[Rfam]
RNA: Fungal signal recognition particle RNA
Organism: Penicillium bovifimosum
RNA sequence: AAUCUGUCAUGGAUAACCUAGUGGAAGGUUGGCCGCCAUGCCAAUUACCCUGCUUCGGCGCAAGUCAGCAGCGUACUGGUGCCUGGUACGAAUCCUGGGGUUGGCAUUUUCACUCGUGCGAGUAAUCCACGACGCUGGAGGCCACUAAGCAAUGGAAAUGAACCUUGAGGGAAGCAAUUCUGCAGAGACAUUUCCACCCUGGGAUGGCGUCGCCAGAUUACACCGUCCUGUUACAGGGAACUUGGCAAUUUGGCCUGACAACCACUCUU
Numbered sequence: 001a002a003u004c005u006g007u008c009a010u011g012g013a014u015a016a017c018c019u020a021g022u023g024g025a026a027g028g029u030u031g032g033c034c035g036c037c038a039u040g041c042c043a044a045u046u047a048c049c050c051u052g053c054u055u056c057g058g059c060g061c062a063a064g065u066c067a068g069c070a071g072c073g074u075a076c077u078g079g080u081g082c083c084u085g086g087u088a089c090g091a092a093u094c095c096u097g098g099g100g101u102u103g104g105c106a107u108u109u110u111c112a113c114u115c116g117u118g119c120g121a122g123u124a125a126u127c128c129a130c131g132a133c134g135c136u137g138g139a140g141g142c143c144a145c146u147a148a149g150c151a152a153u154g155g156a157a158a159u160g161a162a163c164c165u166u167g168a169g170g171g172a173a174g175c176a177a178u179u180c181u182g183c184a185g186a187g188a189c190a191u192u193u194c195c196a197c198c199c200u201g202g203g204a205u206g207g208c209g210u211c212g213c214c215a216g217a218u219u220a221c222a223c224c225g226u227c228c229u230g231u232u233a234c235a236g237g238g239a240a241c242u243u244g245g246c247a248a249u250u251u252g253g254c255c256u257g258a259c260a261a262c263c264a265c266u267c268u269u
Base pairs, nucleotide, nucleotide: 002014003013004012020266021265022264023263024262028259029258030257031256032255035254036253037252038251039247040246041245042244043243044242046240048238049237050236051235052234069230070229071228075226076225078224079223080222081221083216084215085214086213087212088210089209090208092205093204094203095202096201097200098199099198100197102144103142105140107139108138109137111134114132115131116130117129118128120127121126145149153196154195155194156193157192158191159190164187165186166185171180172179173178